[Rfam]
RNA sequence: CGCGAUUCAGGAGAUGGCAUUCCUCCUUUAACCGCCCCUGGGGCUGAUGAUGCCUACGCAUUC
Numbered sequence: 001c002g003c004g005a006u007u008c009a010g011g012a013g014a015u016g017g018c019a020u021u022c023c024u025c026c027u028u029u030a031a032c033c034g035c036c037c038c039u040g041g042g043g044c045u046g047a048u049g050a051u052g053c054c055u056a057c058g059c060a061u062u063c
Stems, first nucleotide, its partner, number of pairs: 010026004016054006034044003